[Rfam]
RNA: RAGATH-30 RNA
RNA sequence: GUAAAAAUAAGAAAUAAUCGAAACAACCUACAAAGGUAGGAUCUGCCGAGUGGCAGUAG
Dot-bracket structure: ..........................(((((....)))))..(((((....)))))...